[Rfam]
The record is a 70-nucleotide RNA from Ixodes scapularis, which matches "mir-153 microRNA precursor family" in Rfam. Rfam 15.1 lists 1,565 matches to the family in 711 species. Rfam links the family to the GO terms miRNA-mediated post-transcriptional gene silencing and RISC complex. NCBI's taxonomy places the organism under Eukaryota, Ecdysozoa, Acari, Ixodoidea, Ixodes.
RNA sequence: GCGCUCAUCAUUUUUGUGAUUGGUGCAAUUGUGCACCAGCAAAUUGCAUAGUCACAAAAGUGAUGGUCGC
Numbered sequence: 001g002c003g004c005u006c007a008u009c010a011u012u013u014u015u016g017u018g019a020u021u022g023g024u025g026c027a028a029u030u031g032u033g034c035a036c037c038a039g040c041a042a043a044u045u046g047c048a049u050a051g052u053c054a055c056a057a058a059a060g061u062g063a064u065g066g067u068c069g070c
Stems, first nucleotide, its partner, number of pairs: 002069002005066002008063013024048007